[Rfam]
RNA: Actino-pnp RNA
Organism: Marmoricola endophyticus
RNA sequence: CCCGGUCCUCGGUAGUGGCCACCGGAUCCCCCGAGAGGCGGGCUCCGACGGCCUCGAUCGAAGACCGGC
Numbered sequence: 001c002c003c004g005g006u007c008c009u010c011g012g013u014a015g016u017g018g019c020c021a022c023c024g025g026a027u028c029c030c031c032c033g034a035g036a037g038g039c040g041g042g043c044u045c046c047g048a049c050g051g052c053c054u055c056g057a058u059c060g061a062a063g064a065c066c067g068g069c
Stems, first nucleotide, its partner, number of pairs: 002068006009061005017053004023047004028041002